FMN riboswitch aptamer (RFN element): a 145-nucleotide RNA from Aquella oligotrophica. The RFN element is a highly conserved domain that is found frequently in the 5'-untranslated regions of prokaryotic mRNAs that encode for flavin mononucleotide (FMN) biosynthesis and transport proteins. The family's consensus secondary structure is taken from published work.
[Rfam]
RNA sequence: UAUAUCUUUCGGGGCGAGGCGCAAUUCCUCACCGACGGUAAUAAGCAUUUUGCUUUUAGCCCGUGACCUGUAAGUUUUUUGGCUUACAGUUGAUUCAGUGAAAAUCUGAAGCCGACAGUAAAAGUCUGGAUGGGAGAGGGAUAUA
Numbered sequence: 001u002a003u004a005u006c007u008u009u010c011g012g013g014g015c016g017a018g019g020c021g022c023a024a025u026u027c028c029u030c031a032c033c034g035a036c037g038g039u040a041a042u043a044a045g046c047a048u049u050u051u052g053c054u055u056u057u058a059g060c061c062c063g064u065g066a067c068c069u070g071u072a073a074g075u076u077u078u079u080u081g082g083c084u085u086a087c088a089g090u091u092g093a094u095u096c097a098g099u100g101a102a103a104a105u106c107u108g109a110a111g112c113c114g115a116c117a118g119u120a121a122a123a124g125u126c127u128g129g130a131u132g133g134g135a136g137a138g139g140g141a142u143a144u145a
Base pairs, nucleotide, nucleotide: 003143004142005141006140007139008138009137010136017029018028019027031125032124033114034113035064036063037062038061059112060111068089069088094110095109096108097107098106116128117127118126